Rfam assigns this 80-nucleotide sequence from Crocodylus porosus to the family "Mammalian CPEB3 ribozyme".
Rfam links the family to the GO term RNA nuclease activity.
The match comes from Rfam's covariance-model search (40 bits).
RNA sequence: AGAGGUCACAAGCUCGAGGCCACAGCAGAAGUUCUCAUGACGCAGCCCCGUCAGGUUCCAACAAAUCUGUGGAUUCUGCU
Number, nucleotide and partner (000 for none) at each position: 001a000002g000003a000004g000005g000006u000007c000008a000009c000010a000011a000012g000013c000014u000015c000016g048017a000018g047019g046020c045021c000022a000023c000024a080025g079026c078027a077028g076029a075030a074031g043032u042033u000034c000035u000036c000037a000038u000039g000040a000041c000042g032043c031044a000045g020046c019047c018048c016049c000050g000051u000052c069053a068054g067055g066056u065057u064058c000059c000060a000061a000062c000063a000064a057065a056066u055067c054068u053069g052070u000071g000072g000073a000074u030075u029076c028077u027078g026079c025080u024